[Rfam]
RNA sequence: GAUUGCAACUUUUUUACCAUUCGCAAUAAAAAAGAUACCAUACCUCUCUGCAAUCGCGGCUG
Numbered sequence: 001g002a003u004u005g006c007a008a009c010u011u012u013u014u015u016a017c018c019a020u021u022c023g024c025a026a027u028a029a030a031a032a033a034g035a036u037a038c039c040a041u042a043c044c045u046c047u048c049u050g051c052a053a054u055c056g057c058g059g060c061u062g
Stems, first nucleotide, its partner, number of pairs: 001055007
Rfam assigns this 62-nucleotide RNA sequence to the family "S4-Bacteroidia ribosomal protein leader". Clan: Ribosomal Protein S4 Leader clan. It is one of the family's seed sequences. The family's RNA type in Rfam is cis-regulatory leader. Pairs were carried over by alignment from the consensus structure, which is taken from published work. For this family Rfam cites "Discovery of 20 novel ribosomal leader candidates in bacteria and archaea" (Eckert and Weinberg, BMC Microbiol, 2020).